[Rfam]
RNA sequence: UACAGUCUUCGGGGCAAGGUGUAAUUCCUGACCGGCAGUAUAGUCUGCGAGCAAAAGCUGAUAUGGUGCAAUUCCAUAACCGACGGUAAAGUCCGGAUGAGAGAAGAUAUGA
Numbered sequence: 001u002a003c004a005g006u007c008u009u010c011g012g013g014g015c016a017a018g019g020u021g022u023a024a025u026u027c028c029u030g031a032c033c034g035g036c037a038g039u040a041u042a043g044u045c046u047g048c049g050a051g052c053a054a055a056a057g058c059u060g061a062u063a064u065g066g067u068g069c070a071a072u073u074c075c076a077u078a079a080c081c082g083a084c085g086g087u088a089a090a091g092u093c094c095g096g097a098u099g100a101g102a103g104a105a106g107a108u109a110u111g112a
Stems, first nucleotide, its partner, number of pairs: 005108006017029003031092002033082002035048004043080002051058002062078005084095003
The family of this 112-nucleotide RNA from Coprococcus sp. AF21-14LB is "FMN riboswitch aptamer (RFN element)". NCBI's taxonomy places the organism under Bacteria, Bacillati, Clostridia, Lachnospiraceae, Coprococcus. Pairs were carried over by alignment from the consensus structure, which is taken from published work.